[Rfam]
RNA: SAH (S-adenosyl-L-homocysteine) riboswitch aptamer
Nucleotides: 067
Stems, first nucleotide, its partner, number of pairs: 002045001004043005021032004
Number, partner (000 for none) and nucleotide at each position: 001000u002045g003000u004043g005042c006041c007040g008039a009000g010000g011000a012000g013000c014000g015000c016000u017000g018000c019000a020000a021032g022031c023030g024029g025000u026000c027000g028000u029024u030023c031022g032021c033000c034000c035000a036000g037000g038000c039008u040007c041006g042005g043004c044000u045002u046000a047000c048000c049000c050000a051000a052000a053000c054000g055000g056000c057000g058000c059000u060000c061000a062000c063000c064000a065000a066000u067000u